[Rfam]
RNA: mir-71 microRNA precursor family
RNA sequence: GCUGUGUGAAAGACAGGAGUAGUGAGAUGUCCUCGACAUCACAAAUUCUCACUACCUUGUCUUUCAUGCGGAU
Numbered sequence: 001g002c003u004g005u006g007u008g009a010a011a012g013a014c015a016g017g018a019g020u021a022g023u024g025a026g027a028u029g030u031c032c033u034c035g036a037c038a039u040c041a042c043a044a045a046u047u048c049u050c051a052c053u054a055c056c057u058u059g060u061c062u063u064u065c066a067u068g069c070g071g072a073u
Base pairs, nucleotide, nucleotide: 008065009064010063011062012061013060014059015058017057019055021053022052023051024050025049026048027047
Dot-bracket structure: .......((((((((.(.(.(((((((...................))))))).).)))))))))........